[Rfam]
Rfam assigns this 109-nucleotide RNA sequence to the family "gltS RNA". The family's consensus secondary structure is taken from published work.
RNA sequence: UUUCACUAAGGAUAUGUUUUUUUCACAUAAGAAAUUUCCUGUGAAGAACAGAAUGGACUCAAACUCAUCACACUUGAUGAGUUAUGAACGGACAAAUAUUAAAAAAAAA
Numbered sequence: 001u002u003u004c005a006c007u008a009a010g011g012a013u014a015u016g017u018u019u020u021u022u023u024c025a026c027a028u029a030a031g032a033a034a035u036u037u038c039c040u041g042u043g044a045a046g047a048a049c050a051g052a053a054u055g056g057a058c059u060c061a062a063a064c065u066c067a068u069c070a071c072a073c074u075u076g077a078u079g080a081g082u083u084a085u086g087a088a089c090g091g092a093c094a095a096a097u098a099u100u101a102a103a104a105a106a107a108a109a
Stems, first nucleotide, its partner, number of pairs: 021046007063082007